[Rfam]
Rfam assigns this 134-nucleotide RNA from Mesocricetus auratus to the family "Small nucleolar RNA SNORA71". The match comes from Rfam's covariance-model search (83 bits). Its family is annotated with RNA processing and nucleolus in the Gene Ontology. The source organism's lineage runs through Eukaryota, Vertebrata, Sarcopterygii, Dipnotetrapodomorpha and Mesocricetus. The members of this family belong to the H/ACA class of snoRNAs which bind a number of proteins (including dyskerin, Gar1p and Nop10p) to form snoRNP complexes. This class of snoRNAs are thought to guide the sites of modification of uridines to pseudouridines by forming direct base pairing interactions with substrate RNAs. On this family, see Ganot et al., Genes Dev 1997: "The family of box ACA small nucleolar RNAs is defined by an evolutionarily conserved secondary structure and ubiquitous sequence elements essential for RNA accumulation".
RNA sequence: CCUUGCAUUUGUAAGUGAUCAGGGGGAGCCCAUGCCCUGGUCAUUGGUAGUGCAGGCAGAGGAACCGUGGGAAGAACGGUCUUGUGUUUGGAAGGUCCACACCCGUGCCUUCUACUGCUGGAGGCUUUCCCAUA
Numbered sequence: 001c002c003u004u005g006c007a008u009u010u011g012u013a014a015g016u017g018a019u020c021a022g023g024g025g026g027a028g029c030c031c032a033u034g035c036c037c038u039g040g041u042c043a044u045u046g047g048u049a050g051u052g053c054a055g056g057c058a059g060a061g062g063a064a065c066c067g068u069g070g071g072a073a074g075a076a077c078g079g080u081c082u083u084g085u086g087u088u089u090g091g092a093a094g095g096u097c098c099a100c101a102c103c104c105g106u107g108c109c110u111u112c113u114a115c116u117g118c119u120g121g122a123g124g125c126u127u128u129c130c131c132a133u134a
Stems, first nucleotide, its partner, number of pairs: 002056008014045008023037003067131001069130006086116001088114001091112005